[Rfam]
RNA: Vibrio RNA VqmR
Organism: Vibrio genomosp. F6
RNA sequence: AUGAAUGUUAUAUCGCUCAUGGUGUCUAAUAGAUACCUCUACAUUUUUUGCAAUACAUGUGCUAGGAAUGUGGAACCUCUUCUACACGUCGACAAGAUUAAUUCUUGUAUUUGCCAGCCCCUCUUCAGGCUGGCUUUUUUUUGU
Numbered sequence: 001a002u003g004a005a006u007g008u009u010a011u012a013u014c015g016c017u018c019a020u021g022g023u024g025u026c027u028a029a030u031a032g033a034u035a036c037c038u039c040u041a042c043a044u045u046u047u048u049u050g051c052a053a054u055a056c057a058u059g060u061g062c063u064a065g066g067a068a069u070g071u072g073g074a075a076c077c078u079c080u081u082c083u084a085c086a087c088g089u090c091g092a093c094a095a096g097a098u099u100a101a102u103u104c105u106u107g108u109a110u111u112u113g114c115c116a117g118c119c120c121c122u123c124u125u126c127a128g129g130c131u132g133g134c135u136u137u138u139u140u141u142u143g144u
Base pairs, nucleotide, nucleotide: 003014004013021037022036023035024034025033026032045067046066047065048064050062051061092108093107094106095105096104097103113134114133115132116131117130118129119128